[Rfam]
RNA: S16-Flavobacteria ribosomal protein leader
RNA sequence: ACUAAUAAUCGGGGUCGGGUACCCCAAAAUUAAU
Numbered sequence: 001a002c003u004a005a006u007a008a009u010c011g012g013g014g015u016c017g018g019g020u021a022c023c024c025c026a027a028a029a030u031u032a033a034u
Stems, first nucleotide, its partner, number of pairs: 001034001003032004011025005